[Rfam]
RNA sequence: GGGGGAGCACCGGAUCCUGGGAUGUGUCCCCCGGUGCCCUGGGCGCCGGGGCCUGCACCACUGGAAUUGCACUCCCCGGCCGCACAGCCCCCU
Numbered sequence: 001g002g003g004g005g006a007g008c009a010c011c012g013g014a015u016c017c018u019g020g021g022a023u024g025u026g027u028c029c030c031c032c033g034g035u036g037c038c039c040u041g042g043g044c045g046c047c048g049g050g051g052c053c054u055g056c057a058c059c060a061c062u063g064g065a066a067u068u069g070c071a072c073u074c075c076c077c078g079g080c081c082g083c084a085c086a087g088c089c090c091c092c093u
Stems, first nucleotide, its partner, number of pairs: 001092005011082003016079002019076003023071004027065002031063001033059005041053001043052002
This 93-nucleotide RNA sequence from Canis lupus belongs to the Rfam family "mir-8799 microRNA precursor family". The family has 7 seed sequences and 20,638 matches in Rfam 15.1. Rfam links the family to the GO terms miRNA-mediated post-transcriptional gene silencing and RISC complex.